About this RNA
The record is an 82-nucleotide RNA sequence from Corticimicrobacter populi, which matches "SucA RNA motif" in Rfam. The base pairs follow the family's consensus structure, which is taken from published work. A reference for the family is Weinberg et al. (2007), "Identification of 22 candidate structured RNAs in bacteria using the CMfinder comparative genomics pipeline", Nucleic Acids Res.

RNA sequence: CCGCUAUCCGCUAUCCGGUCUGGCCGUGUCGCGGAAGGUUUUCCUGCAUCGCACCGGGUGAAACGCCCGUAUAGGUGAAGCG
Numbered sequence: 001c002c003g004c005u006a007u008c009c010g011c012u013a014u015c016c017g018g019u020c021u022g023g024c025c026g027u028g029u030c031g032c033g034g035a036a037g038g039u040u041u042u043c044c045u046g047c048a049u050c051g052c053a054c055c056g057g058g059u060g061a062a063a064c065g066c067c068c069g070u071a072u073a074g075g076u077g078a079a080g081c082g
Stems, first nucleotide, its partner, number of pairs: 002082003007035005016026004037044002047077004055069006